[Rfam]
RNA sequence: CUAUGCGGACGACCGCAUGCGCAUCGUUUCAUCGGGGACGGCCCCA
Numbered sequence: 001c002u003a004u005g006c007g008g009a010c011g012a013c014c015g016c017a018u019g020c021g022c023a024u025c026g027u028u029u030c031a032u033c034g035g036g037g038a039c040g041g042c043c044c045c046a
Stems, first nucleotide, its partner, number of pairs: 001019001003018006034045004